Notes
The record is a 35-nucleotide sequence, which matches "DUF805b RNA" in Rfam. The base pairs follow the family's consensus structure, which is taken from published work. It is one of the family's seed sequences.
RNA sequence: GAGGCGUAACCGAAAAGCCUAAGAUAGAGUAGGAA
Dot-bracket structure: .((((....[[.....))))...........]]..